A member of the RNA family "Small nucleolar RNA SNORD100" from Accipiter nisus, 87 nucleotides long. The family has 26 seed sequences and 838 matches in Rfam 15.1. By type it is a C/D-box small nucleolar RNA. Clan: SNORD100 clan.
RNA sequence: GCUGCAUCUGAUGAAAAUUUGGCUCCCUCUGCUGAAACAAAUGAGGAGAACAGCCUUAACCGUUACCCAAGUCUUCUGAGAUGUUGC
Numbered sequence: 001g002c003u004g005c006a007u008c009u010g011a012u013g014a015a016a017a018u019u020u021g022g023c024u025c026c027c028u029c030u031g032c033u034g035a036a037a038c039a040a041a042u043g044a045g046g047a048g049a050a051c052a053g054c055c056u057u058a059a060c061c062g063u064u065a066c067c068c069a070a071g072u073c074u075u076c077u078g079a080g081a082u083g084u085u086g087c
Stems, first nucleotide, its partner, number of pairs: 001087002004084006